[Rfam]
Source information: Rfam assigns this 201-nucleotide RNA sequence from Actinacidiphila alni to the family "c-di-AMP riboswitch aptamer (ydaO/yuaA leader)".
RNA sequence: AUCCUGCCGCCGCCCGAUCUCCUGGACCUUUUGAUCACACACGGCAGGAGCGGGGGACCCAGGUAAGUCGCCGUCUCGCAGUCAGGGACGGCUCGGGGUGAAGUCGCGGCGCCGUGCGCACACGCAUCGGCACGACCACGUGACCGGGCAUCUCCUGCCCGAACCCGACAGCUCACCUCGCAGGCGUAGGAGAGGAAAUCC
Numbered sequence: 001a002u003c004c005u006g007c008c009g010c011c012g013c014c015c016g017a018u019c020u021c022c023u024g025g026a027c028c029u030u031u032u033g034a035u036c037a038c039a040c041a042c043g044g045c046a047g048g049a050g051c052g053g054g055g056g057a058c059c060c061a062g063g064u065a066a067g068u069c070g071c072c073g074u075c076u077c078g079c080a081g082u083c084a085g086g087g088a089c090g091g092c093u094c095g096g097g098g099u100g101a102a103g104u105c106g107c108g109g110c111g112c113c114g115u116g117c118g119c120a121c122a123c124g125c126a127u128c129g130g131c132a133c134g135a136c137c138a139c140g141u142g143a144c145c146g147g148g149c150a151u152c153u154c155c156u157g158c159c160c161g162a163a164c165c166c167g168a169c170a171g172c173u174c175a176c177c178u179c180g181c182a183g184g185c186g187u188a189g190g191a192g193a194g195g196a197a198a199u200c201c
Stems, first nucleotide, its partner, number of pairs: 002049008050181006060095001096166003104143004146160004

Taxonomically the source falls in Actinacidiphila (Bacteria, Actinomycetota, Kitasatosporales, Streptomycetaceae).